[Rfam]
RNA sequence: GUUGUUGUUGUAUCUAGUUCGCUUGGUGCAGGUCGGGAAACGGUUUAUUCAUUUUCUUCCUUUUGGUUCUUGUUAAUGUUGACCAUGUGAAUUGGAUUCCCGCCUUGCAUCAACUGAAUCGGAUACAGCAGUGAGU
Number, nucleotide and partner (000 for none) at each position: 001g000002u000003u000004g000005u000006u000007g000008u000009u000010g000011u000012a000013u123014c122015u000016a000017g119018u118019u117020c116021g000022c000023u113024u112025g111026g110027u109028g108029c107030a106031g105032g104033u000034c102035g101036g100037g099038a098039a000040a000041c095042g000043g000044u000045u000046u000047a000048u000049u000050c000051a000052u000053u000054u000055u000056c000057u000058u000059c000060c000061u000062u000063u000064u000065g000066g000067u000068u000069c000070u000071u000072g000073u000074u000075a000076a000077u000078g000079u000080u000081g000082a000083c000084c000085a000086u000087g000088u000089g000090a000091a000092u000093u000094g000095g041096a000097u000098u038099c037100c036101c035102g034103c000104c032105u031106u030107g029108c028109a027110u026111c025112a024113a023114c000115u000116g020117a019118a018119u017120c000121g000122g014123a013124u000125a000126c000127a000128g000129c000130a000131g000132u000133g000134a000135g000136u000
Source information:
Shown here is a 136-nucleotide RNA from Papaver somniferum, a member of the family "MIR168 microRNA precursor family". A reference for the family is Reinhart et al. (2002), "MicroRNAs in plants", Genes Dev. Rfam 15.1 lists 518 matches to the family in 218 species. Its family is annotated with RISC complex and miRNA-mediated post-transcriptional gene silencing in the Gene Ontology. The source organism's lineage runs through Eukaryota, Streptophytina, Ranunculales, Papaveroideae and Papaver.